[Rfam]
RNA: drz-agam-2-2 ribozyme
Organism: Anopheles gambiae
RNA sequence: AGCAAUACCUCGCUGAUACGGGGGUGGAUCCGAAGCCUCUAGAAGGUUAACAUAAGCUCUCCACCUCCUACUCCUACUUAAUAUGUCCCCGUCGUACAGAACGGUAACAUGUCUCUCAAUUAUCCAAGCUUGGGUAUACGGGGAAACCCAUCCCCUUGGGCGGAUGGGUUGCAUGGCUAAAUUGAGAGGG
Numbered sequence: 001a002g003c004a005a006u007a008c009c010u011c012g013c014u015g016a017u018a019c020g021g022g023g024g025u026g027g028a029u030c031c032g033a034a035g036c037c038u039c040u041a042g043a044a045g046g047u048u049a050a051c052a053u054a055a056g057c058u059c060u061c062c063a064c065c066u067c068c069u070a071c072u073c074c075u076a077c078u079u080a081a082u083a084u085g086u087c088c089c090c091g092u093c094g095u096a097c098a099g100a101a102c103g104g105u106a107a108c109a110u111g112u113c114u115c116u117c118a119a120u121u122a123u124c125c126a127a128g129c130u131u132g133g134g135u136a137u138a139c140g141g142g143g144a145a146a147c148c149c150a151u152c153c154c155c156u157u158g159g160g161c162g163g164a165u166g167g168g169u170u171g172c173a174u175g176g177c178u179a180a181a182u183u184g185a186g187a188g189g190g
Stems, first nucleotide, its partner, number of pairs: 010101001021068002023065006030056001072190004077186006083095003087104002108175005115168003122165004131150005153160002